Source information: This 275-nucleotide RNA sequence from Oryza nivara belongs to the Rfam family "MIR821 microRNA precursor family".
RNA sequence: GAUUUCAACUGAAAAAGUCAUCAACAACAAAGUUGUAUAACUUAUCAAGAUCUAUAACUUUUAUUUUAGUCAUUUCUUCAUCCGACAAAGCGAUAGUAACAUUGUUUACAAAAUUAGCAUAUGUCAUAUAUGGUUUCAUAAGCUAUAAGAGAGAUAUGCAAAUUUUGUGAACAAUGUUACUAUCGCUUUGUCGGAUGAAGAAAUAACCAAAAUAAAAGUUGUAGCUCUUAAUGAGUUCUACAACUUUUAUGUUCAUGAUUUUUUCAGCUGAAAUU
Number, nucleotide and partner (000 for none) at each position: 001g000002a000003u000004u000005u000006c000007a000008a000009c000010u000011g000012a000013a000014a262015a261016a260017g259018u258019c257020a256021u255022c000023a253024a252025c000026a250027a000028c000029a000030a246031a245032g244033u243034u242035g241036u240037a239038u000039a237040a236041c235042u234043u000044a232045u231046c000047a229048a228049g227050a226051u000052c224053u223054a000055u221056a220057a219058c218059u217060u216061u215062u214063a213064u212065u211066u210067u209068a000069g207070u206071c000072a204073u203074u202075u201076c000077u199078u198079c197080a196081u195082c000083c193084g192085a191086c190087a189088a188089a187090g186091c185092g184093a000094u182095a181096g180097u179098a178099a177100c000101a175102u174103u173104g172105u171106u170107u169108a168109c167110a166111a165112a164113a000114u162115u161116a000117g159118c158119a157120u156121a155122u154123g000124u000125c000126a000127u000128a000129u000130a000131u145132g144133g143134u142135u141136u140137c000138a000139u000140a136141a135142g134143c133144u132145a131146u000147a000148a000149g000150a000151g000152a000153g000154a122155u121156a120157u119158g118159c117160a000161a115162a114163u000164u112165u111166u110167g109168u108169g107170a106171a105172c104173a103174a102175u101176g000177u099178u098179a097180c096181u095182a094183u000184c092185g091186c090187u089188u088189u087190g086191u085192c084193g083194g000195a081196u080197g079198a078199a077200g000201a075202a074203a073204u072205a000206a070207c069208c000209a067210a066211a065212a064213u063214a062215a061216a060217a059218g058219u057220u056221g055222u000223a053224g052225c000226u050227c049228u048229u047230a000231a045232u044233g000234a042235g041236u040237u039238c000239u037240a036241c035242a034243a033244c032245u031246u030247u000248u000249a000250u026251g000252u024253u023254c000255a021256u020257g019258a018259u017260u016261u015262u014263u000264u000265c000266a000267g000268c000269u000270g000271a000272a000273a000274u000275u000
The literature on the family includes a 2006 paper in FEBS Lett by Luo et al., "Rice embryogenic calli express a unique set of microRNAs, suggesting regulatory roles of microRNAs in plant post-embryogenic development". It scores 267 bits against the family's covariance model.